Bacterial small subunit ribosomal RNA: a 193-nucleotide part of an RNA. A reference for the family is Yusupov et al. (2001), "Crystal structure of the ribosome at 5.5 A resolution", Science. The family has 99 seed sequences and 42,628 matches in Rfam 15.1.
RNA sequence: CACCGCCCGUCACACCCUGGGAAUUGGUUUCGCCCAAAGCAUCGGACCAAUGAUCACCCAUGACUUCUGUGUACCACUAGUGCUACAAAGGCUUUUGGUGGUCUUAUUGGCGCAUACCACGGUGGGGUCUUCGACUGGGGUGAAGUCGUAACAAGGUAGCCGUAGGGGAACCUGUGGCUGGAUUGAAUCUGAA
Numbered sequence: 001c002a003c004c005g006c007c008c009g010u011c012a013c014a015c016c017c018u019g020g021g022a023a024u025u026g027g028u029u030u031c032g033c034c035c036a037a038a039g040c041a042u043c044g045g046a047c048c049a050a051u052g053a054u055c056a057c058c059c060a061u062g063a064c065u066u067c068u069g070u071g072u073a074c075c076a077c078u079a080g081u082g083c084u085a086c087a088a089a090g091g092c093u094u095u096u097g098g099u100g101g102u103c104u105u106a107u108u109g110g111c112g113c114a115u116a117c118c119a120c121g122g123u124g125g126g127g128u129c130u131u132c133g134a135c136u137g138g139g140g141u142g143a144a145g146u147c148g149u150a151a152c153a154a155g156g157u158a159g160c161c162g163u164a165g166g167g168g169a170a171c172c173u174g175u176g177g178c179u180g181g182a183u184u185g186a187a188u189c190u191g192a193a
Stems, first nucleotide, its partner, number of pairs: 003155001005152001008148002013142008026129009039117001041115002047110007157180010